[Rfam]
RNA sequence: GGGGGUGUCCUGGCUUCGACGGGGGUUGCAAAGUCGACUGGUGCAUGCCGAGGGGGCCGCUUUCCUCGUUAAUCCAGCAGCAAACUUUAGUUGCCAACGACGACAACUACGCUCUCGCCGCUUAAGGCGUAAGCCCCGAACCCACUUGUGCCCGUGCUCGUGGAUGUAGGGUCAUUAUCACGGAACAGCUGCCGGCGGCGACCCGCCAACCGGUAGUGAACUUAGCGGGUGUGGACGACGGUGUGCCUCGCACGUUGUGUUGCCGUCGUACGAGAACCAACAACGAGCUAAGCAUGUAGUACCGGAGAUGGCGUGCUCUCGGACGGGGGUUCAACUCCCCCCACCUCCACCA
Numbered sequence: 001g002g003g004g005g006u007g008u009c010c011u012g013g014c015u016u017c018g019a020c021g022g023g024g025g026u027u028g029c030a031a032a033g034u035c036g037a038c039u040g041g042u043g044c045a046u047g048c049c050g051a052g053g054g055g056g057c058c059g060c061u062u063u064c065c066u067c068g069u070u071a072a073u074c075c076a077g078c079a080g081c082a083a084a085c086u087u088u089a090g091u092u093g094c095c096a097a098c099g100a101c102g103a104c105a106a107c108u109a110c111g112c113u114c115u116c117g118c119c120g121c122u123u124a125a126g127g128c129g130u131a132a133g134c135c136c137c138g139a140a141c142c143c144a145c146u147u148g149u150g151c152c153c154g155u156g157c158u159c160g161u162g163g164a165u166g167u168a169g170g171g172u173c174a175u176u177a178u179c180a181c182g183g184a185a186c187a188g189c190u191g192c193c194g195g196c197g198g199c200g201a202c203c204c205g206c207c208a209a210c211c212g213g214u215a216g217u218g219a220a221c222u223u224a225g226c227g228g229g230u231g232u233g234g235a236c237g238a239c240g241g242u243g244u245g246c247c248u249c250g251c252a253c254g255u256u257g258u259g260u261u262g263c264c265g266u267c268g269u270a271c272g273a274g275a276a277c278c279a280a281c282a283a284c285g286a287g288c289u290a291a292g293c294a295u296g297u298a299g300u301a302c303c304g305g306a307g308a309u310g311g312c313g314u315g316c317u318c319u320c321g322g323a324c325g326g327g328g329g330u331u332c333a334a335c336u337c338c339c340c341c342c343a344c345c346u347c348c349a350c351c352a
Stems, first nucleotide, its partner, number of pairs: 001348007020321007033309003038305006044296005049068005056081002059078003114133002117130002121126001135171003139167001142163004148157001151183002155180002188217008201230005233271001235269008244259003254284003325341005